[Rfam]
RNA sequence: CUGUUUUUUUCUUUGGUUAUCUAGCUGUAUGAGAUUUGUUGAACCAUAUCAUAAAGCUAGAGAACCGAAUGUAAAAACGG
Numbered sequence: 001c002u003g004u005u006u007u008u009u010u011c012u013u014u015g016g017u018u019a020u021c022u023a024g025c026u027g028u029a030u031g032a033g034a035u036u037u038g039u040u041g042a043a044c045c046a047u048a049u050c051a052u053a054a055a056g057c058u059a060g061a062g063a064a065c066c067g068a069a070u071g072u073a074a075a076a077a078c079g080g
Base pairs, nucleotide, nucleotide: 001080002079003078004077005076007074008073010071012069013068014067015066016065017064018063020061021060022059023058024057025056026055028053029052030051031050032049
mir-9/mir-79 microRNA precursor family: an 80-nucleotide sequence from Chiloscyllium punctatum.